The record is an 89-nucleotide RNA sequence from Sphingomonas alpina, which matches "Glycine riboswitch aptamer" in Rfam. Lineage of the source: Bacteria > Pseudomonadota > Alphaproteobacteria > Sphingomonadaceae > Sphingomonas.
RNA sequence: UGGGCACGCGCGGGAGAGAGCCUUUCAAUAGGCCGCCGAAGGAGCAACCGCCCCGGAAUCUCUCAGGCAAACGGGACCGCGCGCGCCGA
Numbered sequence: 001u002g003g004g005c006a007c008g009c010g011c012g013g014g015a016g017a018g019a020g021c022c023u024u025u026c027a028a029u030a031g032g033c034c035g036c037c038g039a040a041g042g043a044g045c046a047a048c049c050g051c052c053c054c055g056g057a058a059u060c061u062c063u064c065a066g067g068c069a070a071a072c073g074g075g076a077c078c079g080c081g082c083g084c085g086c087c088g089a
Stems, first nucleotide, its partner, number of pairs: 007083007020033004035068003038064002042062003048056002
This family represents the bacterial glycine riboswitch.